A member of the RNA family "c-di-AMP riboswitch aptamer (ydaO/yuaA leader)" from Paenibacillus sp. NFR01, 193 nucleotides long.
Nucleotides: 193
Stems, first nucleotide, its partner, number of pairs: 011176004018034007035171006045089001090156003098130002101127003133150004
Number, partner (000 for none) and nucleotide at each position: 001000c002000a003000u004000a005000g006000u007000a008000a009000u010000c011176c012175g013174c014173u015000u016000a017000a018034u019033u020032u021031c022030c023029g024028u025000c026000a027000a028024a029023c030022g031021g032020a033019a034018a035171a036170c037169g038168g039167g040166g041000g042000a043000a044000c045089c046000a047000a048000a049000g050000a051000u052000c053000g054000g055000c056000a057000g058000c059000c060000g061000a062000u063000u064000u065000u066000c067000u068000u069000u070000g071000u072000u073000a074000c075000a076000g077000c078000g079000g080000c081000u082000c083000c084000g085000g086000u087000u088000a089045g090156g091155g092154g093000u094000g095000a096000a097000u098130c099129c100000g101127g102126c103125g104000g105000c106000u107000u108000g109000g110000g111000c112000g113000c114000a115000a116000a117000g118000c119000c120000c121000a122000g123000g124000a125103c126102g127101c128000a129099g130098g131000u132000a133150g134149g135148g136147c137000g138000a139000c140000u141000c142000u143000c144000a145000c146000c147136g148135c149134c150133c151000g152000a153000a154092u155091c156090c157000g158000a159000c160000a161000g162000c163000u164000a165000a166040c167039c168038u169037c170036g171035u172000a173014a174013g175012c176011g177000u178000a179000u180000u181000g182000u183000a184000g185000a186000g187000a188000g189000g190000a191000u192000a193000a

Background:
The source organism's lineage runs through Bacteria, Bacillota, Bacilli, Caryophanales and Paenibacillus. It scores 90 bits against the family's covariance model.